[Rfam]
This 146-nucleotide RNA sequence from Weissella viridescens belongs to the Rfam family "FMN riboswitch aptamer (RFN element)". It scores 104 bits against the family's covariance model.
RNA sequence: UAAUAUCUUCAGGGCAGGGUGAAAUUCCCGAUCGGUGGUGAGCAUUGCUUCUCAAUGUAAGUCCGCGACUCAAACUGCAUGGUGCAUUUGAUUGAUAUGGUGAAAUUCCAUAACCGACAGUACAGUCUGGUAUAUAGAAGAUUUUA
Number, nucleotide and partner (000 for none) at each position: 001u000002a000003a144004u000005a142006u141007c140008u139009u138010c137011a000012g000013g000014g000015c000016a000017g029018g028019g027020u000021g000022a000023a000024a000025u000026u000027c019028c018029c017030g000031a126032u125033c116034g115035g066036u065037g064038g063039u000040g000041a000042g000043c000044a000045u000046u000047g000048c000049u000050u000051c000052u000053c000054a000055a000056u000057g000058u000059a000060a000061g114062u113063c038064c037065g036066c035067g000068a000069c000070u091071c090072a000073a000074a000075c000076u000077g000078c000079a000080u000081g000082g000083u000084g000085c000086a000087u000088u000089u000090g071091a070092u000093u000094g000095a000096u112097a111098u110099g109100g108101u000102g000103a000104a000105a000106u000107u000108c100109c099110a098111u097112a096113a062114c061115c034116g033117a000118c129119a128120g127121u000122a000123c000124a000125g032126u031127c120128u119129g118130g000131u000132a000133u000134a000135u000136a000137g010138a009139a008140g007141a006142u005143u000144u003145u000146a000